Rfam assigns this 72-nucleotide sequence from Dictyostelium discoideum to the family "tRNA". By type it is a transfer RNA. The family's consensus secondary structure is taken from published work.

[Rfam]
RNA sequence: UCCUCAUUGGUGUAGUCGGUAACACUCUAGUCUUUCACACUGGUACCUCGGGUUCGAUUCCCGAAUGGGGAG
Numbered sequence: 001u002c003c004u005c006a007u008u009g010g011u012g013u014a015g016u017c018g019g020u021a022a023c024a025c026u027c028u029a030g031u032c033u034u035u036c037a038c039a040c041u042g043g044u045a046c047c048u049c050g051g052g053u054u055c056g057a058u059u060c061c062c063g064a065a066u067g068g069g070g071a072g
Stems, first nucleotide, its partner, number of pairs: 001071007010025004027043005048064005
Transfer RNA (tRNA) molecules are approximately 80 nucleotides in length.